[Rfam]
RNA: Bacterial large signal recognition particle RNA
RNA sequence: CCGUGCUAGACGGGGAGGUAGCGGUGCCCUGUACUCGCAAUCCGCUAUAGCGAGGUCGAAUUCCUUCCCCCGGUUUUAGCAUCGUAGGGUCUGACCUAAGUAAGUGGUGUUGACAUCUGGGUUCCACGCAACGGAAAUCCGUGAAUCGUGUCAGGUCCGGAAGGAAGCAGCACUAAGCGGUACCUUCUGUGUGCCGUGGAGUCGCCUGGAUCGAGCUAACUGCUUAGGUAACGCCUGGGGUGUUAAUCCCAAAGGAAGGUGCACGG
Numbered sequence: 001c002c003g004u005g006c007u008a009g010a011c012g013g014g015g016a017g018g019u020a021g022c023g024g025u026g027c028c029c030u031g032u033a034c035u036c037g038c039a040a041u042c043c044g045c046u047a048u049a050g051c052g053a054g055g056u057c058g059a060a061u062u063c064c065u066u067c068c069c070c071c072g073g074u075u076u077u078a079g080c081a082u083c084g085u086a087g088g089g090u091c092u093g094a095c096c097u098a099a100g101u102a103a104g105u106g107g108u109g110u111u112g113a114c115a116u117c118u119g120g121g122u123u124c125c126a127c128g129c130a131a132c133g134g135a136a137a138u139c140c141g142u143g144a145a146u147c148g149u150g151u152c153a154g155g156u157c158c159g160g161a162a163g164g165a166a167g168c169a170g171c172a173c174u175a176a177g178c179g180g181u182a183c184c185u186u187c188u189g190u191g192u193g194c195c196g197u198g199g200a201g202u203c204g205c206c207u208g209g210a211u212c213g214a215g216c217u218a219a220c221u222g223c224u225u226a227g228g229u230a231a232c233g234c235c236u237g238g239g240g241u242g243u244u245a246a247u248c249c250c251a252a253a254g255g256a257a258g259g260u261g262c263a264c265g266g
Stems, first nucleotide, its partner, number of pairs: 001266006009057003012030004017025001019023001034054005063259006072248004079243005085237004092230002096227006104220002106217003115211008123200006129191002132189005139180004148173004156165003
Dot-bracket structure: ((((((..(((((((.(.(...).).))))...(((((...........)))))))).....((((((...((((...(((((.((((...((..((((((..(((((......((((((((((((((((.(((((..((((.....((((....(((....)))....))))...))))....)))))))...))))))...))))))))...))).)).)))))).))...)))).))))).)))).....)))))).))))))